[Rfam]
RNA sequence: CGGCCCUUCCAGCUUCUUUACAGUGCUGCCUUGUUGCAAAACCAUGUCAAGCAGCAUUGUACAGGGCUAUGAAAGAGCCG
Numbered sequence: 001c002g003g004c005c006c007u008u009c010c011a012g013c014u015u016c017u018u019u020a021c022a023g024u025g026c027u028g029c030c031u032u033g034u035u036g037c038a039a040a041a042c043c044a045u046g047u048c049a050a051g052c053a054g055c056a057u058u059g060u061a062c063a064g065g066g067c068u069a070u071g072a073a074a075g076a077g078c079c080g
Base pairs, nucleotide, nucleotide: 014066015065016064017063019061020060021059022058023057024056025055026054027053028052030051031050032049033048
This 80-nucleotide RNA sequence from Salvator merianae belongs to the Rfam family "mir-103/107 microRNA precursor family". The match comes from Rfam's covariance-model search (80 bits). The base pairs follow the family's consensus structure, which was predicted with RNAalifold. A reference for the family is Ambros (2001), "microRNAs: tiny regulators with great potential", Cell. Rfam's curators write: This family consists of the mammalian microRNA (miRNA) precursors mir-103 and mir107. Animal miRNAs are transcribed as ~70nt precursors and subsequently processed by the Dicer enzyme to give a ~22nt product. In this case the mature sequence comes from the 3' arm of the precursor. The extents of the hairpin precursors are not generally known and are estimated based on hairpin prediction. NCBI's taxonomy places the organism under Eukaryota, Vertebrata, Squamata, Episquamata, Salvator.